This 80-nucleotide RNA sequence from Acanthosepion pharaonis belongs to the Rfam family "Mammalian CPEB3 ribozyme". A reference for the family is Salehi-Ashtiani et al. (2006), "A genomewide search for ribozymes reveals an HDV-like sequence in the human CPEB3 gene", Science.

RNA sequence: UGGAAGGCACUGGGGUCCACCGAAGGAGAGUUCACAUCGCGGUCUCUGUCAGGUGAGUUCUCUCAUUUACCAAUCCUUCC
Numbered sequence: 001u002g003g004a005a006g007g008c009a010c011u012g013g014g015g016u017c018c019a020c021c022g023a024a025g026g027a028g029a030g031u032u033c034a035c036a037u038c039g040c041g042g043u044c045u046c047u048g049u050c051a052g053g054u055g056a057g058u059u060c061u062c063u064c065a066u067u068u069a070c071c072a073a074u075c076c077u078u079c080c
Base pairs, nucleotide, nucleotide: 013046014045015044017042018041022079023078024077025076026075027074028040030038051068052067053066054065055064056063